The record is a 65-nucleotide sequence from Merluccius polli, which matches "Selenocysteine insertion sequence 1" in Rfam. The source organism's lineage runs through Eukaryota, Euteleosteomorpha, Eurypterygia, Gadoidei and Merluccius. Rfam 15.1 lists 3,793 matches to the family in 721 species. It scores 40 bits against the family's covariance model. The incorporation of selenocysteine into a protein sequence is directed by an in-frame UGA codon (usually a stop codon) within the coding region of the mRNA. Selenoprotein mRNAs contain a conserved secondary structure in the 3' UTR that is required for the distinction of UGA stop from UGA selenocysteine. The selenocysteine insertion sequence (SECIS) is around 60 nt in length and adopts a hairpin structure which is sufficiently well-defined and conserved to act as a computational screen for selenoprotein genes.
[Rfam]
RNA sequence: GUGUGUUAUAAUGAAAACUUGACUCUAAACUCUUCAGGAGAGGAGCAGGUUGGAUGCUUCCACAC
Numbered sequence: 001g002u003g004u005g006u007u008a009u010a011a012u013g014a015a016a017a018c019u020u021g022a023c024u025c026u027a028a029a030c031u032c033u034u035c036a037g038g039a040g041a042g043g044a045g046c047a048g049g050u051u052g053g054a055u056g057c058u059u060c061c062a063c064a065c
Base pairs, nucleotide, nucleotide: 001065002064003063004062005061016051017050018049019048020047021046024043025042030040031039032038